[Rfam]
RNA sequence: UUCUUAUCAAGAGCGGCGGAGGGACAGGCCCUGUGAAGCCCGGCAACCGGCGGUAUUAACUGCAAGGUGCUAAAUCCUGCAGGGAAAGUCCCUGGAAGAUAAGGC
Numbered sequence: 001u002u003c004u005u006a007u008c009a010a011g012a013g014c015g016g017c018g019g020a021g022g023g024a025c026a027g028g029c030c031c032u033g034u035g036a037a038g039c040c041c042g043g044c045a046a047c048c049g050g051c052g053g054u055a056u057u058a059a060c061u062g063c064a065a066g067g068u069g070c071u072a073a074a075u076c077c078u079g080c081a082g083g084g085a086a087a088g089u090c091c092c093u094g095g096a097a098g099a100u101a102a103g104g105c
Base pairs, nucleotide, nucleotide: 002104003103004102005101006100007099008098013041015040016039017038021031022030023029025079026078027077028076042071043070044069045068047067048066049063052060075097080094081093082092083091084090085089